[Rfam]
RNA: Plastid-ccsA-ndhD-1 3UTR RNA
Organism: Olea europaea
RNA sequence: GAAUCGGCGCGAACCCUGUGAAUCACUACAAUAUUUGAUUCACAGGGUUCUCAUCA
Number, nucleotide and partner (000 for none) at each position: 001g000002a000003a000004u000005c000006g000007g054008c000009g052010c000011g050012a049013a048014c047015c046016c045017u044018g043019u042020g041021a040022a039023u038024c037025a036026c000027u000028a000029c000030a000031a000032u000033a000034u000035u000036u025037g024038a023039u022040u021041c020042a019043c018044a017045g016046g015047g014048u013049u012050c011051u000052c009053a000054u007055c000056a000